[Rfam]
Nucleotides: 052
Stems, first nucleotide, its partner, number of pairs: 011028006032047006
Number, partner (000 for none) and nucleotide at each position: 001000c002000g003000c004000c005000g006000g007000g008000a009000c010000a011028c012027c013026u014025c015024u016023c017000c018000c019000c020000a021000a022000c023016g024015a025014g026013a027012g028011g029000c030000g031000c032047c033046c034045a035044u036043c037042u038000g039000a040000a041000a042037g043036g044035a045034u046033g047032g048000u049000u050000a051000c052000a